Overview:
A member of the RNA family "RNase MRP" from Plutella xylostella, 234 nucleotides long. It scores 82 bits against the family's covariance model. The base pairs follow the family's consensus structure, which is taken from published work. NCBI's taxonomy places the organism under Eukaryota, Pancrustacea, Insecta, Ditrysia, Plutella. By type it is a ribozyme.

RNA sequence: GAGUUUCAACCAGUUCAACCGUCGGGGCUACAUGCAGAGUCUCUAUGGCUCCCUUGCCCUGUGGAAAGUCCCCGGAGACGAGGCGGAAAGCGCCGCAGUGUGAGGCUGCAGGCCAGCCCGGCGCUUCAGGGGGGUCAUACCUGUGUCGCGCCAGGCUGUAGCGUUGCUCAGAGCGAAGCUAAUGUUGAAAGGCACUUGUGUCGAACCAAAUGGGGCUUACUUGGUCAUGGAACU
Numbered sequence: 001g002a003g004u005u006u007c008a009a010c011c012a013g014u015u016c017a018a019c020c021g022u023c024g025g026g027g028c029u030a031c032a033u034g035c036a037g038a039g040u041c042u043c044u045a046u047g048g049c050u051c052c053c054u055u056g057c058c059c060u061g062u063g064g065a066a067a068g069u070c071c072c073c074g075g076a077g078a079c080g081a082g083g084c085g086g087a088a089a090g091c092g093c094c095g096c097a098g099u100g101u102g103a104g105g106c107u108g109c110a111g112g113c114c115a116g117c118c119c120g121g122c123g124c125u126u127c128a129g130g131g132g133g134g135u136c137a138u139a140c141c142u143g144u145g146u147c148g149c150g151c152c153a154g155g156c157u158g159u160a161g162c163g164u165u166g167c168u169c170a171g172a173g174c175g176a177a178g179c180u181a182a183u184g185u186u187g188a189a190a191g192g193c194a195c196u197u198g199u200g201u202c203g204a205a206c207c208a209a210a211u212g213g214g215g216c217u218u219a220c221u222u223g224g225u226c227a228u229g230g231a232a233c234u
Stems, first nucleotide, its partner, number of pairs: 002234007009225003014189006023061006037051005066218003070215004082094004095109002111162001114158005121151004131141002134138001191202004